[Rfam]
RNA sequence: GUUGCUUCUUACUGGUGAACGCUUUCAGAUUUAACAAUGAGAAAUGUUCAUGUUUUCGAAGCAUAAAUUAAGUAAUUCAUAGCCAGUUUUAAACAGCGCUGUGCAUUUUCUUAUAUUGCACUGCACUACCUGUCUCCUGGUAUAUUU
Numbered sequence: 001g002u003u004g005c006u007u008c009u010u011a012c013u014g015g016u017g018a019a020c021g022c023u024u025u026c027a028g029a030u031u032u033a034a035c036a037a038u039g040a041g042a043a044a045u046g047u048u049c050a051u052g053u054u055u056u057c058g059a060a061g062c063a064u065a066a067a068u069u070a071a072g073u074a075a076u077u078c079a080u081a082g083c084c085a086g087u088u089u090u091a092a093a094c095a096g097c098g099c100u101g102u103g104c105a106u107u108u109u110c111u112u113a114u115a116u117u118g119c120a121c122u123g124c125a126c127u128a129c130c131u132g133u134c135u136c137c138u139g140g141u142a143u144a145u146u147u
Base pairs, nucleotide, nucleotide: 003063004062005061006060007059008058016050017049018048019047020046023042024041025040082141083140084139085138086137095127096126099123101121102120103119
RNA: small nucleolar RNA snoR137
Organism: Gossypium harknessii